SAM-III riboswitch aptamer (SMK box): a 93-nucleotide RNA from Companilactobacillus tucceti. A search with the family's covariance model found it, with a score of 50 bits. Taxonomically the source falls in Companilactobacillus tucceti (Bacteria, Bacilli, Lactobacillales, Lactobacillaceae). Gene Ontology terms of the family: regulation of translational initiation and methionine adenosyltransferase activity.
RNA sequence: ACCUAUUAAAAGGUUCCUGAUGGGAUCCUUUUUUUAUUUCUGGGAAACUGGAUAAAAGGAGAAGCCCUGUAACCGAAAGGUGGAAAAAAUAUG
Numbered sequence: 001a002c003c004u005a006u007u008a009a010a011a012g013g014u015u016c017c018u019g020a021u022g023g024g025a026u027c028c029u030u031u032u033u034u035u036a037u038u039u040c041u042g043g044g045a046a047a048c049u050g051g052a053u054a055a056a057a058g059g060a061g062a063a064g065c066c067c068u069g070u071a072a073c074c075g076a077a078a079g080g081u082g083g084a085a086a087a088a089a090u091a092u093g
Stems, first nucleotide, its partner, number of pairs: 014085004022067003026060007073080002